[Rfam]
RNA sequence: GACUUCGGGCCUCGUGAGGCCUCGGUCCGCUCGGCUUUCGCAGGCCUGGUGCAUCUUCCCCGGCACCAGGACGCGACGGGCGGGCGGGGACCUGACGGGAUCCGGACGUCCAC
Number, nucleotide and partner (000 for none) at each position: 001g000002a000003c000004u000005u000006c000007g000008g000009g000010c000011c099012u098013c097014g096015u095016g000017a000018g092019g091020c000021c089022u088023c087024g000025g085026u084027c083028c082029g081030c080031u079032c078033g077034g000035c000036u000037u000038u076039c075040g074041c073042a000043g000044g000045c070046c069047u068048g067049g066050u065051g064052c063053a000054u000055c000056u000057u000058c000059c000060c000061c000062g000063g052064c051065a050066c049067c048068a047069g046070g045071a000072c000073g041074c040075g039076a038077c033078g032079g031080g030081c029082g028083g027084g026085c025086g000087g023088g022089g021090a000091c019092c018093u000094g000095a015096c014097g013098g012099g011100a000101u000102c000103c000104g000105g000106a000107c000108g000109u000110c000111c000112a000113c000
The record is a 113-nucleotide sequence from Saccharopolyspora hordei, which matches "mraW RNA" in Rfam. The base pairs follow the family's consensus structure, which is taken from published work. It scores 53 bits against the family's covariance model. It is annotated as a cis-regulatory element.